[Rfam]
RNA sequence: GACUGUCCAUGACGUUAAAAUACUAAAUUCCUGGGAUGUGUUUUAGUUGAUUUUAGUCUCUGUU
Numbered sequence: 001g002a003c004u005g006u007c008c009a010u011g012a013c014g015u016u017a018a019a020a021u022a023c024u025a026a027a028u029u030c031c032u033g034g035g036a037u038g039u040g041u042u043u044u045a046g047u048u049g050a051u052u053u054u055a056g057u058c059u060c061u062g063u064u
Stems, first nucleotide, its partner, number of pairs: 001064003005060001014047010029036002
RNA: Selenocysteine insertion sequence 1
Organism: Mytilus coruscus